A member of the RNA family "Small nucleolar RNA snoR74" from Hevea brasiliensis, 138 nucleotides long. Lineage of the source: Eukaryota > Viridiplantae > Mesangiospermae > Gunneridae > Hevea. A search with the family's covariance model found it, with a score of 112 bits. The family's RNA type in Rfam is H/ACA-box small nucleolar RNA. The literature on the family includes a 2002 paper in Curr Biol by Marker et al., "Experimental RNomics: identification of 140 candidates for small non-messenger RNAs in the plant Arabidopsis thaliana".

RNA sequence: GAAAAAGCAGGGGCCUGUUGCCCAUGUGAACAGGUCUCUCGUAAACUUCAGGGAAAUCAAUAUCGUUGUUAUUGGGUGAACCUCUGUUUUUUUUCCCCCUUGUAUGUGGCUGAAGGUUCAGUAAAUGAUGGCACACUU
Numbered sequence: 001g002a003a004a005a006a007g008c009a010g011g012g013g014c015c016u017g018u019u020g021c022c023c024a025u026g027u028g029a030a031c032a033g034g035u036c037u038c039u040c041g042u043a044a045a046c047u048u049c050a051g052g053g054a055a056a057u058c059a060a061u062a063u064c065g066u067u068g069u070u071a072u073u074g075g076g077u078g079a080a081c082c083u084c085u086g087u088u089u090u091u092u093u094u095c096c097c098c099c100u101u102g103u104a105u106g107u108g109g110c111u112g113a114a115g116g117u118u119c120a121g122u123a124a125a126u127g128a129u130g131g132c133a134c135a136c137u138u
Stems, first nucleotide, its partner, number of pairs: 005048003011037002014034004064130007077120007